[Rfam]
RNA sequence: AUACAGUGAAGUCCAGACUCACUUUAAAAAACGGGGCGUAUUCCAAAAAGCCAUAUGAGUAGGGAAUUU
Numbered sequence: 001a002u003a004c005a006g007u008g009a010a011g012u013c014c015a016g017a018c019u020c021a022c023u024u025u026a027a028a029a030a031a032c033g034g035g036g037c038g039u040a041u042u043c044c045a046a047a048a049a050g051c052c053a054u055a056u057g058a059g060u061a062g063g064g065a066a067u068u069u
Stems, first nucleotide, its partner, number of pairs: 006022004035052003042063002